Shown here is a 100-nucleotide RNA sequence from Xenorhabdus koppenhoeferi, a member of the family "Tryptophan operon leader". Rfam links the family to the GO terms tryptophan biosynthetic process and transcriptional attenuation by ribosome. At least 6 amino acid operons are known to be regulated by attenuation. In each a leader sequence of 150-200 bp is found upstream of the first gene in the operon. This leader sequence can assume two different secondary structures known as the terminator and the anti-terminator structure. In each case the leader also codes for very short peptide sequence that is rich in the end product amino acid of the operon. Pairs were carried over by alignment from the consensus structure, which is taken from published work. On this family, see Kolter and Yanofsky, Annu Rev Genet 1982: "Attenuation in amino acid biosynthetic operons".
RNA sequence: AAUCGUUGGUGGCACUAUUUCCCAUUCCGGGCGGCUGGCUCACGCACAUAAGUACGAUUCACAAGUGCCAAAACCCGCCCUAAAAAGCGGGUUUUUUUAU
Numbered sequence: 001a002a003u004c005g006u007u008g009g010u011g012g013c014a015c016u017a018u019u020u021c022c023c024a025u026u027c028c029g030g031g032c033g034g035c036u037g038g039c040u041c042a043c044g045c046a047c048a049u050a051a052g053u054a055c056g057a058u059u060c061a062c063a064a065g066u067g068c069c070a071a072a073a074c075c076c077g078c079c080c081u082a083a084a085a086a087g088c089g090g091g092u093u094u095u096u097u098u099a100u
Stems, first nucleotide, its partner, number of pairs: 009043004018033001020031003072093007